[Rfam]
RNA sequence: GGCGUAAAGCGUGCGCAGGCGGUUUGAUAAGCCAGAUGUGAAAUCCCCGAGCUCAACUUGGGAACUGCGUUUGGAACUGUCAGACUAGAGUGCGUCAGAGGGGGGUGGAAUUCCGCGUGUAGCAGUGAAAUGCGUAGAGAUGCGGAGGAACACCGAUGGCGAAGGCAGCCCCCUGGGAUGACACUGACGCUCAUGCACGAAAGCGUGGGGAGCAAACAGGAUUAGAUACCCUGGUAGUCCACGCCCUAAACGAUGUCAAUUAGCUGUUGGGGGUUAGAAUCCCUGGUAGCGUAGCUAACGCGUGAAAUUGACCGCCUGGGGAGUACGGCCGCAAGGUUAAAACUCAAAGGAAU
Numbered sequence: 001g002g003c004g005u006a007a008a009g010c011g012u013g014c015g016c017a018g019g020c021g022g023u024u025u026g027a028u029a030a031g032c033c034a035g036a037u038g039u040g041a042a043a044u045c046c047c048c049g050a051g052c053u054c055a056a057c058u059u060g061g062g063a064a065c066u067g068c069g070u071u072u073g074g075a076a077c078u079g080u081c082a083g084a085c086u087a088g089a090g091u092g093c094g095u096c097a098g099a100g101g102g103g104g105g106u107g108g109a110a111u112u113c114c115g116c117g118u119g120u121a122g123c124a125g126u127g128a129a130a131u132g133c134g135u136a137g138a139g140a141u142g143c144g145g146a147g148g149a150a151c152a153c154c155g156a157u158g159g160c161g162a163a164g165g166c167a168g169c170c171c172c173c174u175g176g177g178a179u180g181a182c183a184c185u186g187a188c189g190c191u192c193a194u195g196c197a198c199g200a201a202a203g204c205g206u207g208g209g210g211a212g213c214a215a216a217c218a219g220g221a222u223u224a225g226a227u228a229c230c231c232u233g234g235u236a237g238u239c240c241a242c243g244c245c246c247u248a249a250a251c252g253a254u255g256u257c258a259a260u261u262a263g264c265u266g267u268u269g270g271g272g273g274u275u276a277g278a279a280u281c282c283c284u285g286g287u288a289g290c291g292u293a294g295c296u297a298a299c300g301c302g303u304g305a306a307a308u309u310g311a312c313c314g315c316c317u318g319g320g321g322a323g324u325a326c327g328g329c330c331g332c333a334a335g336g337u338u339a340a341a342a343c344u345c346a347a348a349g350g351a352a353u
Base pairs, nucleotide, nucleotide: 001316002315003314009313011198012197013196014195018191019190020189022085023084024083025082026081027080028079030078031077032074033073034072035071036070037069038068039067040066046062047061048060049059050058051057089185090184091183093180094179095178096177100174101173102172103171104170105169106168107151111147112146113145114144115143116142117141118140122133123132124131159166160165203244204243205242206241207240208239212238213237217233218232219231220230255312256311257310258309259308260307263290264289265288266287267286268285269284270283271282272281273280274279294301295300318345319344320343327338328337329336330335
Annotation
The record is a 353-nucleotide part of an RNA, which matches "Bacterial small subunit ribosomal RNA" in Rfam. Pairs were carried over by alignment from the consensus structure, which is taken from published work.